[Rfam]
RNA sequence: GUGGGUUAUGGGGACAUCUAUCCCCAAACGCUCCUGGGCAAAAUAGUGGGUGGUCUCUGUUGUAUUGCUGGCGUGCUAGUGAUCGCUCUCCCUAUCCCUAUUAUUGUGAAUAAC
Numbered sequence: 001g002u003g004g005g006u007u008a009u010g011g012g013g014a015c016a017u018c019u020a021u022c023c024c025c026a027a028a029c030g031c032u033c034c035u036g037g038g039c040a041a042a043a044u045a046g047u048g049g050g051u052g053g054u055c056u057c058u059g060u061u062g063u064a065u066u067g068c069u070g071g072c073g074u075g076c077u078a079g080u081g082a083u084c085g086c087u088c089u090c091c092c093u094a095u096c097c098c099u100a101u102u103a104u105u106g107u108g109a110a111u112a113a114c
Base pairs, nucleotide, nucleotide: 001114002113004111007108008107009106010105011104013102014101016099020095021094037077038076039075040074049063
A member of the RNA family "Potassium channel RNA editing signal" from Triplophysa tibetana, 114 nucleotides long. NCBI's taxonomy places the organism under Eukaryota, Eumetazoa, Chordata, Otophysi, Triplophysa. Rfam links the family to the GO term adenosine to inosine editing. On this family, see Bhalla et al., Nat Struct Mol Biol 2004: "Control of human potassium channel inactivation by editing of a small mRNA hairpin". By type it is a cis-regulatory element. The family's consensus secondary structure is taken from published work.